[Rfam]
The record is a 79-nucleotide RNA from Hermetia illucens, which matches "drz-agam-1 ribozyme" in Rfam. The source organism's lineage runs through Eukaryota, Allotriocarida, Hexapoda, Panorpida and Hermetia. It scores 37 bits against the family's covariance model. A reference for the family is Webb et al. (2009), "Widespread occurrence of self-cleaving ribozymes", Science.
RNA sequence: UACUACCAAACCCUAUCUUCACCUCCACGUGGUUAUCGCUGGUUGUUCUUUAUUUAUGAAAAACUGCAGACGGAGAAGG
Numbered sequence: 001u002a003c004u005a006c007c008a009a010a011c012c013c014u015a016u017c018u019u020c021a022c023c024u025c026c027a028c029g030u031g032g033u034u035a036u037c038g039c040u041g042g043u044u045g046u047u048c049u050u051u052a053u054u055u056a057u058g059a060a061a062a063a064c065u066g067c068a069g070a071c072g073g074a075g076a077a078g079g
Base pairs, nucleotide, nucleotide: 012079013078014077016075018073019072021033022032023031045064046063047062049060050059051058052057